[Rfam]
This 104-nucleotide RNA from Halanaerobium salsuginis belongs to the Rfam family "SAM riboswitch aptamer (S box leader)". The match comes from Rfam's covariance-model search (91 bits). Taxonomically the source falls in Halanaerobium (Bacteria, Bacillota, Halanaerobiales, Halanaerobiaceae).
RNA sequence: AUCUUAUCCAGAGUGGUGGAGGGACUGGCCCUUUGAAACCCGGCAACCAGCAGUUUAAAACUGCCCGGUGCCAAUUCCAGCAGGUAAAACCUGAUAGAUAAGUC
Numbered sequence: 001a002u003c004u005u006a007u008c009c010a011g012a013g014u015g016g017u018g019g020a021g022g023g024a025c026u027g028g029c030c031c032u033u034u035g036a037a038a039c040c041c042g043g044c045a046a047c048c049a050g051c052a053g054u055u056u057a058a059a060a061c062u063g064c065c066c067g068g069u070g071c072c073a074a075u076u077c078c079a080g081c082a083g084g085u086a087a088a089a090c091c092u093g094a095u096a097g098a099u100a101a102g103u104c
Stems, first nucleotide, its partner, number of pairs: 003102006013041001015040003021031003025080004042072004047068002050064004076096001081093005